A member of the RNA family "mir-221 microRNA precursor family" from Oncorhynchus tshawytscha, 83 nucleotides long. The literature on the family includes a 2008 paper in J Virol by Yao et al., "MicroRNA profile of Marek's disease virus-transformed T-cell line MSB-1: predominance of virus-encoded microRNAs". The base pairs follow the family's consensus structure, which was predicted with RNAalifold.

[Rfam]
RNA sequence: CUGUCCGCUGCCUCAGUAGUCAGUGUAGAUCCUGUGGGGCAGUCAGCAGUUACAUUCUGGCUACUGGUUCGCUGAUGGCUGCC
Numbered sequence: 001c002u003g004u005c006c007g008c009u010g011c012c013u014c015a016g017u018a019g020u021c022a023g024u025g026u027a028g029a030u031c032c033u034g035u036g037g038g039g040c041a042g043u044c045a046g047c048a049g050u051u052a053c054a055u056u057c058u059g060g061c062u063a064c065u066g067g068u069u070c071g072c073u074g075a076u077g078g079c080u081g082c083c
Stems, first nucleotide, its partner, number of pairs: 013067006020060003023055006032049004